[Rfam]
RNA sequence: AGAUCAUCGAUGACUUCCAUAUGUGCAGUUCUUGGAAAGCUGAACAACAUGAGUGAAAACGCUAUUAAAAAAAGAAAUGGGACCA
Numbered sequence: 001a002g003a004u005c006a007u008c009g010a011u012g013a014c015u016u017c018c019a020u021a022u023g024u025g026c027a028g029u030u031c032u033u034g035g036a037a038a039g040c041u042g043a044a045c046a047a048c049a050u051g052a053g054u055g056a057a058a059a060c061g062c063u064a065u066u067a068a069a070a071a072a073a074g075a076a077a078u079g080g081g082a083c084c085a
Stems, first nucleotide, its partner, number of pairs: 002084001004082002026055002029052002032047003

Small nucleolar RNA SNORD116: an 85-nucleotide RNA sequence from Saimiri boliviensis. The source organism's lineage runs through Eukaryota, Primates, Simiiformes, Saimiri and Saimiri boliviensis. The family's RNA type in Rfam is C/D-box small nucleolar RNA. A reference for the family is Cavaille et al. (2000), "Identification of brain-specific and imprinted small nucleolar RNA genes exhibiting an unusual genomic organization", Proc Natl Acad Sci U S A. The family has 48 seed sequences and 3,260 matches in Rfam 15.1.